Rfam assigns this 415-nucleotide sequence from Brucella suis to the family "Brucella sRNA CI408". Pairs were carried over by alignment from the consensus structure, which was predicted with RNAfold. The literature on the family includes a 2014 paper in FEMS Microbiol Lett by Dong et al., "Identification of novel sRNAs in Brucella abortus 2308". By type it is a small RNA. The sequence is in the family's curated seed alignment.
[Rfam]
RNA sequence: ACAAAACCCGCGCUGUGUAUGCAGCGCGGGUUUUUCUUAUGCGUUAUCCUGGAACUUUGGCGAUGGGGCCGGGAGGGCCAAGCGUAUCAUCGAUCUGUCGGUCGGUAUGGUAAGUGACGCAAGCUGAAAGAAGAGCGCUGAACAGCAGAAAAAAUACCGAUAGAAACAAUCUGCGUCCGAUGACCCCUAUCGAAUUUAAAAUAUCAAACAUUUGGAUUUAAUCCCUGAGUGAAGAUUGCAGUCGUAAAGUAAAAGGACAGUCCAGGCACUUGCGCUUUUUUGCCUGCAAAGAAUUCCGGUUUGCCGGUUUUCCCGGCGUCCAGUUUUGGGUAUGAGAGCGCAUCCCGAAAAGUGUGAAACGGUUUUCGGAUAAGAUGCGCGUCAAAAAAUAGUUGGAGCGCCGAUCUGAUUCAUU
Numbered sequence: 001a002c003a004a005a006a007c008c009c010g011c012g013c014u015g016u017g018u019a020u021g022c023a024g025c026g027c028g029g030g031u032u033u034u035u036c037u038u039a040u041g042c043g044u045u046a047u048c049c050u051g052g053a054a055c056u057u058u059g060g061c062g063a064u065g066g067g068g069c070c071g072g073g074a075g076g077g078c079c080a081a082g083c084g085u086a087u088c089a090u091c092g093a094u095c096u097g098u099c100g101g102u103c104g105g106u107a108u109g110g111u112a113a114g115u116g117a118c119g120c121a122a123g124c125u126g127a128a129a130g131a132a133g134a135g136c137g138c139u140g141a142a143c144a145g146c147a148g149a150a151a152a153a154a155u156a157c158c159g160a161u162a163g164a165a166a167c168a169a170u171c172u173g174c175g176u177c178c179g180a181u182g183a184c185c186c187c188u189a190u191c192g193a194a195u196u197u198a199a200a201a202u203a204u205c206a207a208a209c210a211u212u213u214g215g216a217u218u219u220a221a222u223c224c225c226u227g228a229g230u231g232a233a234g235a236u237u238g239c240a241g242u243c244g245u246a247a248a249g250u251a252a253a254a255g256g257a258c259a260g261u262c263c264a265g266g267c268a269c270u271u272g273c274g275c276u277u278u279u280u281u282g283c284c285u286g287c288a289a290a291g292a293a294u295u296c297c298g299g300u301u302u303g304c305c306g307g308u309u310u311u312c313c314c315g316g317c318g319u320c321c322a323g324u325u326u327u328g329g330g331u332a333u334g335a336g337a338g339c340g341c342a343u344c345c346c347g348a349a350a351a352g353u354g355u356g357a358a359a360c361g362g363u364u365u366u367c368g369g370a371u372a373a374g375a376u377g378c379g380c381g382u383c384a385a386a387a388a389a390u391a392g393u394u395g396g397a398g399c400g401c402c403g404a405u406c407u408g409a410u411u412c413a414u415u
Stems, first nucleotide, its partner, number of pairs: 003034014050080003055075004059070003082098003086094003105287003109284006116277002118274006124133002137146003158192006169181003211266008222257003226244003230240002233237001291312003296307004314403005319397007333384003338380007345369007353361003